[Rfam]
RNA sequence: AAGAUCUCCUCCGGUCAACCCUCCUCCCAUGACCGGUGAGACCAGACGGCCCAUCCUCCUCCCAGGGUCGUGUGCGAAAAGCGGCGUCAGCGAACCUCCUCCCUCGCUGGCGCCGUUUU
Numbered sequence: 001a002a003g004a005u006c007u008c009c010u011c012c013g014g015u016c017a018a019c020c021c022u023c024c025u026c027c028c029a030u031g032a033c034c035g036g037u038g039a040g041a042c043c044a045g046a047c048g049g050c051c052c053a054u055c056c057u058c059c060u061c062c063c064a065g066g067g068u069c070g071u072g073u074g075c076g077a078a079a080a081g082c083g084g085c086g087u088c089a090g091c092g093a094a095c096c097u098c099c100u101c102c103c104u105c106g107c108u109g110g111c112g113c114c115g116u117u118u119u
Stems, first nucleotide, its partner, number of pairs: 007040001009038001011036007043074002046071007083114011
RNA: Alphaproteobacterial ar14